Glycine riboswitch aptamer: a 90-nucleotide RNA from Streptomonospora nanhaiensis. The organism belongs to Streptomonospora, within Bacteria. Rfam links the family to the GO term glycine biosynthetic process.
RNA sequence: CGAUACCACGCGGGAGAGACCCCUUCCAGGGGCGCCGACGGGGCAAUACUCCCCAGUAACCUCUCAGGCACCAGGGACCGCGUGGAGAAG
Number, nucleotide and partner (000 for none) at each position: 001c000002g000003a000004u000005a000006c085007c084008a083009c082010g081011c080012g079013g078014g000015a000016g000017a000018g000019a000020c032021c031022c030023c029024u000025u000026c000027c000028a000029g023030g022031g021032g020033c000034g069035c068036c067037g065038a064039c000040g000041g063042g062043g061044c000045a000046a000047u056048a000049c000050u000051c000052c000053c000054c000055a000056g047057u000058a000059a000060c000061c043062u042063c041064u038065c037066a000067g036068g035069c034070a000071c000072c000073a000074g000075g000076g000077a000078c013079c012080g011081c010082g009083u008084g007085g006086a000087g000088a000089a000090g000